[Rfam]
RNA: Plastid-rps12 3UTR RNA
Organism: Acorus gramineus
RNA sequence: GGUUUCCAUUGGUGCAAAUCCAAUCACCUCGAUUUGAGGUGAGAAGAAAUUCCCCAUUGGUAGCAAAAGUUAUUCAUUAAGCGGGGAAAAUUCUAUU
Numbered sequence: 001g002g003u004u005u006c007c008a009u010u011g012g013u014g015c016a017a018a019u020c021c022a023a024u025c026a027c028c029u030c031g032a033u034u035u036g037a038g039g040u041g042a043g044a045a046g047a048a049a050u051u052c053c054c055c056a057u058u059g060g061u062a063g064c065a066a067a068a069g070u071u072a073u074u075c076a077u078u079a080a081g082c083g084g085g086g087a088a089a090a091u092u093c094u095a096u097u
Stems, first nucleotide, its partner, number of pairs: 009023004052086004056077002059074006